[Rfam]
The family of this 73-nucleotide RNA sequence from Sphingomonas changnyeongensis is "tRNA". It is annotated as a transfer RNA. NCBI's taxonomy places the organism under Bacteria, Pseudomonadati, Alphaproteobacteria, Sphingomonadales, Sphingomonas.

RNA sequence: GCCGGGUUAGCUCAGCUGGUAGAGCAACCGCCUUGUAAGCGGUAGGUCGUCGGUUCGAGUCCGACACCCGGCA
Numbered sequence: 001g002c003c004g005g006g007u008u009a010g011c012u013c014a015g016c017u018g019g020u021a022g023a024g025c026a027a028c029c030g031c032c033u034u035g036u037a038a039g040c041g042g043u044a045g046g047u048c049g050u051c052g053g054u055u056c057g058a059g060u061c062c063g064a065c066a067c068c069c070g071g072c073a
Stems, first nucleotide, its partner, number of pairs: 001072007010025004027043005049065005